[Rfam]
RNA sequence: CCUUCGCUCAACAGAUCGCUGUCGAAGCUCACACACAGAGAUGUUUCAUCUGAAAAAUCUCUUCCUCUAGCUUUGGGAGAAAGUCCCCGGACACCUUCUUCUUCCUCACGGAAAAGAAGCAUGCGGAAACGCGCCGCCAUAAAAGCAUUGCGGCUGACUUCCGUGCCUUGGCCGCCUCUGGCAAUGACCAUACCCGGCUUGCCGCUACAUUCGCCCGCCUCGAGCCGAUGCGUCACCUCCUUCUCACAGCCGCCGCUCGAACCCUCACAGGAUGAAGAUACGAGUCCGAGUCGGGUGCGGUCCCGGGAUGGAGUGUGCGUUUGGCAGACAGCAGGUGGGUGGUAGGUUGACGCUUGUGGCUCUUGCUGUGGUGGUUUCGGGCGCAGAAGGUAUUUGUCGAGAUCGAUAGUAAUGCGAUUGCUGAGCUUCACGGCUCAGUUACUCGAUGGGGCUCAUUCUUGCGGCGAAG
Numbered sequence: 001c002c003u004u005c006g007c008u009c010a011a012c013a014g015a016u017c018g019c020u021g022u023c024g025a026a027g028c029u030c031a032c033a034c035a036c037a038g039a040g041a042u043g044u045u046u047c048a049u050c051u052g053a054a055a056a057a058u059c060u061c062u063u064c065c066u067c068u069a070g071c072u073u074u075g076g077g078a079g080a081a082a083g084u085c086c087c088c089g090g091a092c093a094c095c096u097u098c099u100u101c102u103u104c105c106u107c108a109c110g111g112a113a114a115a116g117a118a119g120c121a122u123g124c125g126g127a128a129a130c131g132c133g134c135c136g137c138c139a140u141a142a143a144a145g146c147a148u149u150g151c152g153g154c155u156g157a158c159u160u161c162c163g164u165g166c167c168u169u170g171g172c173c174g175c176c177u178c179u180g181g182c183a184a185u186g187a188c189c190a191u192a193c194c195c196g197g198c199u200u201g202c203c204g205c206u207a208c209a210u211u212c213g214c215c216c217g218c219c220u221c222g223a224g225c226c227g228a229u230g231c232g233u234c235a236c237c238u239c240c241u242u243c244u245c246a247c248a249g250c251c252g253c254c255g256c257u258c259g260a261a262c263c264c265u266c267a268c269a270g271g272a273u274g275a276a277g278a279u280a281c282g283a284g285u286c287c288g289a290g291u292c293g294g295g296u297g298c299g300g301u302c303c304c305g306g307g308a309u310g311g312a313g314u315g316u317g318c319g320u321u322u323g324g325c326a327g328a329c330a331g332c333a334g335g336u337g338g339g340u341g342g343u344a345g346g347u348u349g350a351c352g353c354u355u356g357u358g359g360c361u362c363u364u365g366c367u368g369u370g371g372u373g374g375u376u377u378c379g380g381g382c383g384c385a386g387a388a389g390g391u392a393u394u395u396g397u398c399g400a401g402a403u404c405g406a407u408a409g410u411a412a413u414g415c416g417a418u419u420g421c422u423g424a425g426c427u428u429c430a431c432g433g434c435u436c437a438g439u440u441a442c443u444c445g446a447u448g449g450g451g452c453u454c455a456u457u458c459u460u461g462c463g464g465c466g467a468a469g
Stems, first nucleotide, its partner, number of pairs: 002469007009461003014419006022077001023075006038061005044055004082453002085451004098119006249391003256381006265374004356366004421438006
RNA: RNase MRP